[Rfam]
RNA sequence: ACUGAUAAAGGCAAACCCGGUGAAAGCCGGGGACGCAAAGCCACGGGCCUUAAGGUACAUACCAAGGCAGCCGGGUUACCAAAA
Numbered sequence: 001a002c003u004g005a006u007a008a009a010g011g012c013a014a015a016c017c018c019g020g021u022g023a024a025a026g027c028c029g030g031g032g033a034c035g036c037a038a039a040g041c042c043a044c045g046g047g048c049c050u051u052a053a054g055g056u057a058c059a060u061a062c063c064a065a066g067g068c069a070g071c072c073g074g075g076u077u078a079c080c081a082a083a084a
Stems, first nucleotide, its partner, number of pairs: 003081002011036002016031006034070001039077004044073003047068005
Dot-bracket structure: ..((......((...((((((....))))))..[))..((((.((((((((............))))).])))))))..))...
Background:
Shown here is an 84-nucleotide RNA from Sedimentibacter saalensis, a member of the family "c-di-GMP-I-GGC riboswitch aptamer". Its family is annotated with cyclic-di-GMP binding in the Gene Ontology. Taxonomically the source falls in Sedimentibacter (Bacteria, Bacillati, Bacillota, Tissierellia). Clan: c-di-GMP_I riboswitch clan.